[Rfam]
RNA sequence: GGUCAUGCUUUUCCACAGCUUUCUUGAACUUUCUUUGUGUACUUACUCCUUAAAAAUAUUAGCUAAUAUAUAGCUUUAAAGUAGCACACCAUGGAAGCUCAAGAAAGCUCUGGGAGAACAUGAUGG
Dot-bracket structure: ..(((((.....(((.((((((.((((.(((((...........................................................))))).)))).)))))).))).....)))))...

Background
The record is a 126-nucleotide sequence from Durio zibethinus, which matches "MIR396 microRNA precursor family" in Rfam. Its family is annotated with miRNA-mediated post-transcriptional gene silencing and RISC complex in the Gene Ontology. It scores 85 bits against the family's covariance model. The base pairs follow the family's consensus structure, which was predicted with WAR. Rfam 15.1 lists 744 matches to the family in 207 species.